RNA: Rhizobiales sRNA Atu_At1
RNA sequence: UCGCAGGCUGUGCCAAGCGGACGCGAUGGGGAUGGAGAACAUCAGGAUUUUUCCGCUUUCUCCUUUUGGCCAACGAAAAGGCAGCCGAGCUUCUUACCCAUCCAGCCU
Numbered sequence: 001u002c003g004c005a006g007g008c009u010g011u012g013c014c015a016a017g018c019g020g021a022c023g024c025g026a027u028g029g030g031g032a033u034g035g036a037g038a039a040c041a042u043c044a045g046g047a048u049u050u051u052u053c054c055g056c057u058u059u060c061u062c063c064u065u066u067u068g069g070c071c072a073a074c075g076a077a078a079a080g081g082c083a084g085c086c087g088a089g090c091u092u093c094u095u096a097c098c099c100a101u102c103c104a105g106c107c108u
Stems, first nucleotide, its partner, number of pairs: 006107004011023002014020001025102006034093004040068002044064003069082003